[Rfam]
RNA sequence: CAUGUGGUGUCCGACUUCGGGUUGGAAGAGCGACAUGGCCUUACAUUUGAGGU
Number, nucleotide and partner (000 for none) at each position: 001c037002a036003u035004g034005u033006g000007g031008u030009g000010u026011c025012c024013g023014a022015c021016u000017u000018c000019g000020g000021g015022u014023u013024g012025g011026a010027a000028g000029a000030g008031c007032g000033a005034c004035a003036u002037g001038g000039c000040c000041u000042u000043a000044c000045a000046u000047u000048u000049g000050a000051g000052g000053u000
RNA: L31-Gammaproteobacteria ribosomal protein leader